[Rfam]
RNA sequence: CGGAGCAUCUCGCCGGCACAGGACCGGGGACCCAUCGCACCACCGGGGUGAAGCGACCGACGGCCCGAUCGGACCGUCGGCGCCGGGCGUCUUCCCGCCCGAACCCGUCAGCUAACUCGGUAGGCGGCCGUGGAAGGAAGG
Number, nucleotide and partner (000 for none) at each position: 001c123002g000003g000004a000005g000006c021007a000008u000009c000010u000011c000012g000013c000014c000015g000016g000017c000018a000019c000020a000021g006022g000023a121024c120025c119026g118027g117028g116029g000030a000031c000032c000033c045034a000035u000036c000037g000038c000039a000040c000041c000042a000043c000044c000045g033046g106047g105048g104049u000050g000051a000052a000053g000054c082055g081056a000057c079058c000059g000060a000061c000062g000063g000064c000065c000066c000067g000068a000069u000070c000071g000072g000073a000074c000075c000076g000077u000078c000079g057080g000081c055082g054083c000084c000085g100086g099087g098088c097089g000090u000091c000092u000093u000094c000095c000096c000097g088098c087099c086100c085101g000102a000103a000104c048105c047106c046107g000108u000109c000110a000111g000112c000113u000114a000115a000116c028117u027118c026119g025120g024121u023122a000123g001124g000125c000126g000127g000128c000129c000130g000131u000132g000133g000134a000135a000136g000137g000138a000139a000140g000141g000
The record is a 141-nucleotide sequence from Blastococcus sp. CT_GayMR19, which matches "c-di-AMP riboswitch aptamer (ydaO/yuaA leader)" in Rfam. Rfam links the family to the GO terms regulation of gene expression and cyclic-di-AMP binding. About the family: This family represents a conserved RNA structure found upstream of the ydaO and yuaA genes in Bacillus subtilis and related genes in other bacteria. The ydaO/yuaA element is thought to act as a genetic 'off' switch for the ydaO and yuaA genes in its native state.